[Rfam]
RNA sequence: UCCGCCGUAAGGUGGAAUCUGAAGGAAGUCUGCGGCAAACCAUCGGUUCGACGGACAGAAAUCAUGUAUAAGGCUUACAGUCUGGAUAAGACUGCUGAUCAAGUUAAAGUCCAAAUGCUAACAAAAGGCUGUGAGUAGACAUGGCGAAUAGAUGAUGGGAAAGAUAACGAG
Numbered sequence: 001u002c003c004g005c006c007g008u009a010a011g012g013u014g015g016a017a018u019c020u021g022a023a024g025g026a027a028g029u030c031u032g033c034g035g036c037a038a039a040c041c042a043u044c045g046g047u048u049c050g051a052c053g054g055a056c057a058g059a060a061a062u063c064a065u066g067u068a069u070a071a072g073g074c075u076u077a078c079a080g081u082c083u084g085g086a087u088a089a090g091a092c093u094g095c096u097g098a099u100c101a102a103g104u105u106a107a108a109g110u111c112c113a114a115a116u117g118c119u120a121a122c123a124a125a126a127g128g129c130u131g132u133g134a135g136u137a138g139a140c141a142u143g144g145c146g147a148a149u150a151g152a153u154g155a156u157g158g159g160a161a162a163g164a165u166a167a168c169g170a171g
Stems, first nucleotide, its partner, number of pairs: 001016006029170002036163001040158006046149005062144006073136003077132007084112004090105004
Rfam assigns this 171-nucleotide sequence from Clostridiales bacterium KLE1615 to the family "Group II catalytic intron D1-D4-3".
The family has 406 seed sequences and 4,274 matches in Rfam 15.1.
The match comes from Rfam's covariance-model search (141 bits).